[Rfam]
RNA sequence: GGGAGGUUAGCUCAGGGGUAGAGCACUGCAUUCACACUGCAGGGGUCACAAGUUCGAAACUUGUACUUCCCA
Number, nucleotide and partner (000 for none) at each position: 001g071002g070003g069004a068005g067006g066007u065008u000009a000010g024011c023012u022013c021014a000015g000016g000017g000018g000019u000020a000021g013022a012023g011024c010025a000026c042027u041028g040029c039030a038031u000032u000033c000034a000035c000036a000037c000038u030039g029040c028041a027042g026043g000044g000045g000046u000047c000048a064049c063050a062051a061052g060053u000054u000055c000056g000057a000058a000059a000060c052061u051062u050063g049064u048065a007066c006067u005068u004069c003070c002071c001072a000
tRNA: a 72-nucleotide RNA sequence from Rugamonas rubra. By type it is a transfer RNA. The family's consensus secondary structure is taken from published work. NCBI's taxonomy places the organism under Bacteria, Pseudomonadati, Burkholderiales, Oxalobacteraceae, Rugamonas. A search with the family's covariance model found it, with a score of 64 bits.